[Rfam]
RNA: SAM riboswitch aptamer (S box leader)
Organism: Alkalicoccus daliensis
RNA sequence: CUCUUAUCCCGAGCUGGCGGAGGGACAGGCCCGACGAAGCCCGGCAACCAUCAUCUGUAAUAAAAAGAUGAACGGUGCCAACCUGCAAGGUCACAAUUGUACCUUGACUGAUAAGAG
Number, nucleotide and partner (000 for none) at each position: 001c117002u116003c115004u114005u113006a112007u111008c110009c000010c000011g000012a000013g042014c000015u000016g041017g040018c039019g000020g000021a000022g032023g031024g030025a000026c085027a084028g083029g082030c024031c023032c022033g000034a000035c000036g000037a000038a000039g018040c017041c016042c013043g079044g078045c077046a076047a000048c075049c074050a000051u071052c070053a069054u068055c067056u066057g000058u000059a000060a000061u000062a000063a000064a000065a000066a056067g055068a054069u053070g052071a051072a000073c000074g049075g048076u046077g045078c044079c043080a000081a109082c029083c028084u027085g026086c106087a105088a104089g103090g102091u101092c000093a000094c000095a000096a000097u000098u000099g000100u000101a091102c090103c089104u088105u087106g086107a000108c000109u081110g008111a007112u006113a005114a004115g003116a002117g001